[Rfam]
RNA sequence: GGGAUACUCAAAAUGGGAGCACUUUCCCUUUUGUCUGUGCUGGGAAGUGCUUCCAUUUUGGGGUGUCCC
Numbered sequence: 001g002g003g004a005u006a007c008u009c010a011a012a013a014u015g016g017g018a019g020c021a022c023u024u025u026c027c028c029u030u031u032u033g034u035c036u037g038u039g040c041u042g043g044g045a046a047g048u049g050c051u052u053c054c055a056u057u058u059u060g061g062g063g064u065g066u067c068c069c
Base pairs, nucleotide, nucleotide: 004066005065006064007062008061009060010059011058012057013056014055015054016053017052018051019050020049021048022047023046025044026043027042
Shown here is a 69-nucleotide sequence from Mandrillus leucophaeus, a member of the family "mir-290 microRNA precursor family". The match comes from Rfam's covariance-model search (52 bits). The family is grouped with related families in Rfam's "mir-290 clan". The base pairs follow the family's consensus structure, which was predicted with RNAalifold. The organism belongs to Mandrillus, within Eukaryota.